[Rfam]
This 99-nucleotide RNA from Paraliobacillus ryukyuensis belongs to the Rfam family "Purine riboswitch aptamer". Rfam links the family to the GO term purine nucleobase biosynthetic process. Taxonomically the source falls in Paraliobacillus (Bacteria, Bacillati, Bacilli, Bacillaceae). The family's consensus secondary structure is taken from published work.
RNA sequence: AAAAAAGAAAAUAUUAUCACCUGUAUAACCUCAGAAUAUGGCUUGGGGGUCUCUACCAGGAACCUUAAAAUCCUGAUUACAGAAAAUGAACUGUUCAUU
Numbered sequence: 001a002a003a004a005a006a007g008a009a010a011a012u013a014u015u016a017u018c019a020c021c022u023g024u025a026u027a028a029c030c031u032c033a034g035a036a037u038a039u040g041g042c043u044u045g046g047g048g049g050u051c052u053c054u055a056c057c058a059g060g061a062a063c064c065u066u067a068a069a070a071u072c073c074u075g076a077u078u079a080c081a082g083a084a085a086a087u088g089a090a091c092u093g094u095u096c097a098u099u
Stems, first nucleotide, its partner, number of pairs: 021082005029048005034042001057075005